Rfam assigns this 138-nucleotide sequence from Eubacterium sp. CAG:115 to the family "Ribosomal protein L10 leader". The organism belongs to Eubacterium, within Bacteria. Rfam classes the family as a cis-regulatory leader. The base pairs follow the family's consensus structure, which was predicted with CMfinder. About the family: This family is a putative r-protein leader autoregulatory structure found in B. subtilis and other low-GC Gram-positive bacteria. It is located in the 5' untranslated regions of mRNAs encoding ribosomal proteins L10 and L12 (rplJ-rplL). A Rho-independent transcription terminator structure that is probably involved in regulation is included at the 3' end. A search with the family's covariance model found it, with a score of 60 bits.
[Rfam]
RNA sequence: UAUAAUAAUUAUGCUGUUCUAAAGACAGCAGGCUGACGAAAGUCUUUAAUGGUUAACACCGCCUGCCGAGGAAUGGGAAUGAGAUUAUAACAUCUGCUCCCUUUCUGUGUCUACAGAGAGGGAUUUAUUUUUCUCCUC
Numbered sequence: 001u002a003u004a005a006u007a008a009u010u011a012u013g014c015u016g017u018u019c020u021a022a023a024g025a026c027a028g029c030a031g032g033c034u035g036a037c038g039a040a041a042g043u044c045u046u047u048a049a050u051g052g053u054u055a056a057c058a059c060c061g062c063c064u065g066c067c068g069a070g071g072a073a074u075g076g077g078a079a080u081g082a083g084a085u086u087a088u089a090a091c092a093u094c095u096g097c098u099c100c101c102u103u104u105c106u107g108u109g110u111c112u113a114c115a116g117a118g119a120g121g122g123a124u125u126u127a128u129u130u131u132u133c134u135c136c137u138c
Stems, first nucleotide, its partner, number of pairs: 028066006035044003098123010
Dot-bracket structure: ...........................((((((.(((....)))................))))))...............................((((((((((......))))))))))...............